[Rfam]
About this RNA: Shown here is a 475-nucleotide part of an RNA from Trypanosoma brucei, a member of the family "Eukaryotic large subunit ribosomal RNA". The organism belongs to Trypanosoma brucei brucei, within Eukaryota.

RNA sequence: UUGCAUGUGGGACAGAAAAAUAAUACAACAAAACAAAAAUGAAUAGCCAUGUGUGUGUGAGUGAUUGUCGUUUUGUACAUAUAUAUAAUUGUUAUUACGCAGUUAUAUAUUAUAUACUAUUACCAAAACACGCUCUUCACAACUGAGCUGUCUUUUUGUUUUAUGUUAAUAAACUGUGGAAAUGCGAAACACUUGCCAGGUGACCCAUCCAUCCUCCCACGGUGAGCUUUCUUUUCACCAUAAUCCACAUCUCCGGCCUUGCUGGGGCUUGGGCCUCUCGACUUCUCGCGUUACUCGGAGCGGGGGCUCAAGAUUGAAAAAUGCAGCUCACCCUACGUACUGUCCUUUGUUGUGAGUUCGGCGCAUUAAAGCAAAAACCUGGGGUGUUAUGGAAAAUGAAAACAAAAAUCAUAUAUUAUAUAUUUGCGUAAUAUAUGUUUUUGUUUUGACAACAAAAUAAAUUCCCAACUGCAGA
Numbered sequence: 001u002u003g004c005a006u007g008u009g010g011g012a013c014a015g016a017a018a019a020a021u022a023a024u025a026c027a028a029c030a031a032a033a034c035a036a037a038a039a040u041g042a043a044u045a046g047c048c049a050u051g052u053g054u055g056u057g058u059g060a061g062u063g064a065u066u067g068u069c070g071u072u073u074u075g076u077a078c079a080u081a082u083a084u085a086u087a088a089u090u091g092u093u094a095u096u097a098c099g100c101a102g103u104u105a106u107a108u109a110u111u112a113u114a115u116a117c118u119a120u121u122a123c124c125a126a127a128a129c130a131c132g133c134u135c136u137u138c139a140c141a142a143c144u145g146a147g148c149u150g151u152c153u154u155u156u157u158g159u160u161u162u163a164u165g166u167u168a169a170u171a172a173a174c175u176g177u178g179g180a181a182a183u184g185c186g187a188a189a190c191a192c193u194u195g196c197c198a199g200g201u202g203a204c205c206c207a208u209c210c211a212u213c214c215u216c217c218c219a220c221g222g223u224g225a226g227c228u229u230u231c232u233u234u235u236c237a238c239c240a241u242a243a244u245c246c247a248c249a250u251c252u253c254c255g256g257c258c259u260u261g262c263u264g265g266g267g268c269u270u271g272g273g274c275c276u277c278u279c280g281a282c283u284u285c286u287c288g289c290g291u292u293a294c295u296c297g298g299a300g301c302g303g304g305g306g307c308u309c310a311a312g313a314u315u316g317a318a319a320a321a322u323g324c325a326g327c328u329c330a331c332c333c334u335a336c337g338u339a340c341u342g343u344c345c346u347u348u349g350u351u352g353u354g355a356g357u358u359c360g361g362c363g364c365a366u367u368a369a370a371g372c373a374a375a376a377a378c379c380u381g382g383g384g385u386g387u388u389a390u391g392g393a394a395a396a397u398g399a400a401a402a403c404a405a406a407a408a409u410c411a412u413a414u415a416u417u418a419u420a421u422a423u424u425u426g427c428g429u430a431a432u433a434u435a436u437g438u439u440u441u442u443g444u445u446u447u448g449a450c451a452a453c454a455a456a457a458u459a460a461a462u463u464c465c466c467a468a469c470u471g472c473a474g475a
Base pairs, nucleotide, nucleotide: 001474002473003472004471007469008468010466011464012463025458029448030447031446032445034443035442036441037440038439039438040437043432044431045066046065048063049062050061070403071402072401073400074399080393082391083390084389085388088385089384410428412426413425415423416422
The family's consensus secondary structure is taken from published work.